This 175-nucleotide sequence from Egretta garzetta belongs to the Rfam family "Small Cajal body specific RNA 16".
The family has 37 seed sequences and 790 matches in Rfam 15.1.
About the family: scaRNAs are a specific class of small nuclear RNAs which localise to the Cajal bodies and guide the modification of RNA polymerase II transcribed spliceosomal RNAs U1, U2, U4, U5 and U12. ACA47 belongs to the H/ACA box class of guide RNAs as it has the predicted hairpin-hinge-hairpin-tail structure, the conserved H/ACA-box motifs and is found associated with GAR1.
A reference for the family is Darzacq et al. (2002), "Cajal body-specific small nuclear RNAs: a novel class of 2'-O-methylation and pseudouridylation guide RNAs", EMBO J.
Rfam classes the family as a small Cajal body RNA.
[Rfam]
RNA sequence: GAGAGCACUGUGUGCUGGGUGGUGGGGCUGGCGAGCCCUGCCUGGUACCAGCCAGCCUCACCCGUGCCCGAGAUCAACUCCCCAGCGGGCUCCAUGCUGGGGUUCAUCCUGUGCAGUAACAGGUGUGAGCAUCCAUGCAGCGUUUUGGUGGUCAUGUAUGAUACUGCAUACAACA
Numbered sequence: 001g002a003g004a005g006c007a008c009u010g011u012g013u014g015c016u017g018g019g020u021g022g023u024g025g026g027g028c029u030g031g032c033g034a035g036c037c038c039u040g041c042c043u044g045g046u047a048c049c050a051g052c053c054a055g056c057c058u059c060a061c062c063c064g065u066g067c068c069c070g071a072g073a074u075c076a077a078c079u080c081c082c083c084a085g086c087g088g089g090c091u092c093c094a095u096g097c098u099g100g101g102g103u104u105c106a107u108c109c110u111g112u113g114c115a116g117u118a119a120c121a122g123g124u125g126u127g128a129g130c131a132u133c134c135a136u137g138c139a140g141c142g143u144u145u146u147g148g149u150g151g152u153c154a155u156g157u158a159u160g161a162u163a164c165u166g167c168a169u170a171c172a173a174c175a
Stems, first nucleotide, its partner, number of pairs: 003063001005061001010057001013054001014052004019048002021042005027036003081102003084098004110170009120160002126154003130150004137144001